[Rfam]
RNA sequence: AUCUUUUCUUGGCUUUUUAGCUAAAAAAAAAAAAAAAAAUCUGUUCUUAUCAGUUUAAUAUCUGAUACGUCCCCUACCCGGGGACCAUAUAUUAAAUUGAUUUUUGGAGCAGGGAGAUGGAAUAGGGGCUUGCUCCGUCCACUCCACGCAUCGACCUGGUAUUUCAGUAUUUCUAGGAACGGUGCACCCCCU
Number, nucleotide and partner (000 for none) at each position: 001a000002u000003c000004u000005u000006u000007u026008c000009u024010u000011g022012g021013c020014u019015u000016u000017u000018u000019a014020g013021c012022u011023a000024a009025a000026a007027a000028a000029a000030a000031a000032a000033a000034a000035a000036a000037a000038a000039a000040u000041c000042u000043g000044u000045u000046c000047u000048u067049a066050u065051c064052a063053g062054u000055u000056u000057a000058a000059u000060a000061u000062c053063u052064g051065a050066u049067a048068c000069g085070u084071c083072c082073c081074c080075u000076a000077c000078c000079c000080g074081g073082g072083g071084a070085c069086c000087a000088u000089a000090u000091a000092u000093u000094a000095a000096a000097u000098u000099g000100a000101u000102u000103u000104u000105u000106g000107g000108a000109g000110c000111a000112g000113g145114g144115a143116g142117a000118u000119g139120g138121a000122a000123u000124a000125g136126g135127g134128g133129c000130u000131u000132g000133c128134u127135c126136c125137g000138u120139c119140c000141a000142c116143u115144c114145c113146a000147c000148g185149c184150a183151u182152c181153g180154a000155c177156c176157u175158g174159g173160u000161a000162u000163u000164u000165c000166a000167g000168u000169a000170u000171u000172u000173c159174u158175a157176g156177g155178a000179a000180c153181g152182g151183u150184g149185c148186a000187c000188c000189c000190c000191c000192u000
This 192-nucleotide RNA from Maylandia zebra belongs to the Rfam family "U2 spliceosomal RNA". The literature on the family includes a 1997 paper in Nucleic Acids Res by Zwieb, "The uRNA database". Gene Ontology terms of the family: mRNA branch site recognition, U2 snRNP and pre-mRNA branch point binding. Rfam classes the family as a spliceosomal small nuclear RNA. The family's consensus secondary structure is taken from published work. NCBI's taxonomy places the organism under Eukaryota, Chordata, Actinopterygii, Eurypterygia, Maylandia zebra complex.